[Rfam]
RNA sequence: GGGCACCCAAGGGGGCCUGAAAAUCGGGCGGCACGGCCGCCUCAUAGCAAACGGAAGACAGAAA
Numbered sequence: 001g002g003g004c005a006c007c008c009a010a011g012g013g014g015g016c017c018u019g020a021a022a023a024u025c026g027g028g029c030g031g032c033a034c035g036g037c038c039g040c041c042u043c044a045u046a047g048c049a050a051a052c053g054g055a056a057g058a059c060a061g062a063a064a
Stems, first nucleotide, its partner, number of pairs: 001018004006014003024044001026042007
Dot-bracket structure: ((((.(((...))))))).....(.(((((((...))))))).)....................
RNA: L2-Alphaproteobacteria ribosomal protein leader
Organism: Sediminimonas qiaohouensis